[Rfam]
RNA sequence: CAGCGGGGACGACCCCGUUGCAGCGACCAUAAGUUGGGGACGACCCCG
Dot-bracket structure: ((((((((....))))))))..............(((((....)))))